[Rfam]
RNA: L31-Actinobacteria ribosomal protein leader
Organism: Nakamurella aerolata
RNA sequence: CCGGCACCGGUUCACGGCAGCAACGGUGACCGCCUCAGGCGGGCCGGCCGACCCGGAGCC
Numbered sequence: 001c002c003g004g005c006a007c008c009g010g011u012u013c014a015c016g017g018c019a020g021c022a023a024c025g026g027u028g029a030c031c032g033c034c035u036c037a038g039g040c041g042g043g044c045c046g047g048c049c050g051a052c053c054c055g056g057a058g059c060c
Stems, first nucleotide, its partner, number of pairs: 003060003007056004015050004020045001